The record is a 62-nucleotide sequence from Cylindrospermopsis raciborskii, which matches "Nitrogen stress-induced RNA 1" in Rfam. Lineage of the source: Bacteria > Cyanophyceae > Aphanizomenonaceae > Cylindrospermopsis > Cylindrospermopsis raciborskii. The family's RNA type in Rfam is small RNA.
RNA sequence: UGGUAGAUGCACCCUGAUAACUAAUCCCCCCUAGUCGGCUAAAACCUCUGGGGGUUUUUUCU
Numbered sequence: 001u002g003g004u005a006g007a008u009g010c011a012c013c014c015u016g017a018u019a020a021c022u023a024a025u026c027c028c029c030c031c032u033a034g035u036c037g038g039c040u041a042a043a044a045c046c047u048c049u050g051g052g053g054g055u056u057u058u059u060u061c062u
Stems, first nucleotide, its partner, number of pairs: 002013003028054007037046002